[Rfam]
RNA sequence: ACCUGGCUAGCUCAAUUGGUCAGAGCGUCCGACUUUUAGUAAUCUAAGAGUCAUCGGAAGGUUGGGAGUUCGAGCCUCCCGUCGGGUG
Numbered sequence: 001a002c003c004u005g006g007c008u009a010g011c012u013c014a015a016u017u018g019g020u021c022a023g024a025g026c027g028u029c030c031g032a033c034u035u036u037u038a039g040u041a042a043u044c045u046a047a048g049a050g051u052c053a054u055c056g057g058a059a060g061g062u063u064g065g066g067a068g069u070u071c072g073a074g075c076c077u078c079c080c081g082u083c084g085g086g087u088g
Stems, first nucleotide, its partner, number of pairs: 001087007010026004028058005064080005

Record summary
The record is an 88-nucleotide RNA from Aspergillus tanneri, which matches "tRNA" in Rfam. A search with the family's covariance model found it, with a score of 53 bits. The family's RNA type in Rfam is transfer RNA.